Shown here is a 143-nucleotide RNA from Paenibacillus macerans, a member of the family "c-di-AMP riboswitch aptamer (ydaO/yuaA leader)".
Nucleotides: 143
Stems, first nucleotide, its partner, number of pairs: 012127003018040010041123006051060002061108003069084002072081001087102004
Number, partner (000 for none) and nucleotide at each position: 001000u002000a003000u004000a005000g006000a007000c008000u009000c010000a011000c012127g013126c014125u015000u016000a017000g018040u019039u020038u021037c022036c023035g024034g025033c026032u027031u028000a029000a030000g031027g032026a033025g034024c035023c036022g037021g038020g039019a040018a041123a042122c043121g044120g045119g046118g047000g048000a049000a050000c051060c052059a053000u054000u055000u056000u057000u058000u059052u060051g061108g062107g063106g064000c065000g066000a067000a068000u069084c070083a071000u072081u073000c074000a075000g076000c077000a078000a079000u080000g081072a082000u083070u084069g085000u086000a087102g088101g089100g090099u091000a092000c093000c094000a095000u096000c097000u098000u099090a100089c101088c102087c103000g104000a105000g106063c107062c108061c109000g110000u111000c112000a113000g114000c115000u116000a117000a118046c119045c120044u121043c122042g123041u124000c125014a126013g127012c128000a129000g130000u131000g132000g133000a134000u135000g136000g137000g138000u139000c140000u141000a142000u143000a